Purine riboswitch aptamer: a 104-nucleotide RNA from Paenibacillus bovis.

RNA sequence: CUCUUUGGUACGGCGACCACUCAUAUAAUAUUGGGAAUAGGGCCCAGGAGUUUCUACCGGAUAACCAUUGUAAUUGUCCGACUAUGAGUGAAGAACGUGCUGAU
Number, nucleotide and partner (000 for none) at each position: 001c000002u000003c000004u000005u000006u000007g000008g000009u000010a000011c000012g000013g000014c000015g000016a000017c000018c090019a089020c088021u087022c086023a085024u084025a083026u000027a000028a000029u049030a000031u047032u046033g045034g044035g043036a000037a000038u000039a000040g000041g000042g000043c035044c034045c033046a032047g031048g000049a029050g000051u000052u000053u000054c000055u000056a000057c000058c080059g079060g078061a077062u076063a075064a074065c000066c000067a000068u000069u000070g000071u000072a000073a000074u064075u063076g062077u061078c060079c059080g058081a000082c000083u025084a024085u023086g022087a021088g020089u019090g018091a000092a000093g000094a000095a000096c000097g000098u000099g000100c000101u000102g000103a000104u000
Rfam describes the family as follows. Riboswitches are metabolite binding domains within certain messenger RNAs that serve as precision sensors for their corresponding targets. Lineage of the source: Bacteria > Bacillati > Bacilli > Paenibacillaceae > Paenibacillus. The base pairs follow the family's consensus structure, which is taken from published work. Its Rfam clan is "Purine riboswitches".